[Rfam]
RNA: Small nucleolar RNA U54
RNA sequence: AGCUUGAUGAUUACAGCAAAUUAUUUUAGGUGAUAUACGCGAUUCUGAGAGAGUUAAAGGGCUGAUAUUGGAAUAUAGGAGAGCU
Numbered sequence: 001a002g003c004u005u006g007a008u009g010a011u012u013a014c015a016g017c018a019a020a021u022u023a024u025u026u027u028a029g030g031u032g033a034u035a036u037a038c039g040c041g042a043u044u045c046u047g048a049g050a051g052a053g054u055u056a057a058a059g060g061g062c063u064g065a066u067a068u069u070g071g072a073a074u075a076u077a078g079g080a081g082a083g084c085u
Base pairs, nucleotide, nucleotide: 001085002084003083004082005081